A member of the RNA family "Alphaproteobacteria transfer-messenger RNA" from Sphingomonas suaedae, 360 nucleotides long. Bacterial tmRNA, also known as 10Sa RNA or SsrA, is named for its dual tRNA and mRNA-like properties. Its role is to liberate the mRNA from a stalled ribosome. To accomplish this part of the tmRNA is used as a reading frame that ends in a translation stop signal. Lineage of the source: Bacteria > Pseudomonadati > Sphingomonadales > Sphingomonadaceae > Sphingomonas. Rfam classes the family as a non-coding RNA gene. The match comes from Rfam's covariance-model search (230 bits). Pairs were carried over by alignment from the consensus structure, which is taken from published work. A reference for the family is Williams and Bartel (1996), "Phylogenetic analysis of tmRNA secondary structure", RNA.
[Rfam]
RNA sequence: GCUCUUUGCAAUCGGAUUUGGCGUCCCUAUAUCGGUCCUGCCGGGUUCGCCCGGCUAUGACGAUAAAUUGUGGCGUGCAAUAGACGCAGCGGACCCGGGGGCAGUACCCGGCGGCUCCACCAUAAUUGGUGGCCAGAACCGAAAGGAUUUCUGGACACCGUUUCUGACGGGGCCGAACCAGGAUCGACGUGUGUUGAAAAGCGCUUCUUUCGUUCGGAAUGGGACCACCGCGACGGCCCAUACACACAAGUGCCAACGAUAACGAAGCACUCGCUAUUGCGGCGUAAUCCCAAGACCUAACGGUCUAAGAUUACUCUAAAAUGCGCGGUUGGACCGCACCGGGCAACAGAAGCGGAUUCC
Numbered sequence: 001g002c003u004c005u006u007u008g009c010a011a012u013c014g015g016a017u018u019u020g021g022c023g024u025c026c027c028u029a030u031a032u033c034g035g036u037c038c039u040g041c042c043g044g045g046u047u048c049g050c051c052c053g054g055c056u057a058u059g060a061c062g063a064u065a066a067a068u069u070g071u072g073g074c075g076u077g078c079a080a081u082a083g084a085c086g087c088a089g090c091g092g093a094c095c096c097g098g099g100g101g102c103a104g105u106a107c108c109c110g111g112c113g114g115c116u117c118c119a120c121c122a123u124a125a126u127u128g129g130u131g132g133c134c135a136g137a138a139c140c141g142a143a144a145g146g147a148u149u150u151c152u153g154g155a156c157a158c159c160g161u162u163u164c165u166g167a168c169g170g171g172g173c174c175g176a177a178c179c180a181g182g183a184u185c186g187a188c189g190u191g192u193g194u195u196g197a198a199a200a201g202c203g204c205u206u207c208u209u210u211c212g213u214u215c216g217g218a219a220u221g222g223g224a225c226c227a228c229c230g231c232g233a234c235g236g237c238c239c240a241u242a243c244a245c246a247c248a249a250g251u252g253c254c255a256a257c258g259a260u261a262a263c264g265a266a267g268c269a270c271u272c273g274c275u276a277u278u279g280c281g282g283c284g285u286a287a288u289c290c291c292a293a294g295a296c297c298u299a300a301c302g303g304u305c306u307a308a309g310a311u312u313a314c315u316c317u318a319a320a321a322u323g324c325g326c327g328g329u330u331g332g333a334c335c336g337c338a339c340c341g342g343g344c345a346a347c348a349g350a351a352g353c354g355g356a357u358u359c360c
Base pairs, nucleotide, nucleotide: 040055041054042053043052044051059214060213061212062211063210070207072205073204074203075202076201085193086192087191089190090189091188095111096110097109098108099107112175113174114173115172116171117170118169215230216229217228220240221239222238225236226235326341327340328339329338332358333357335355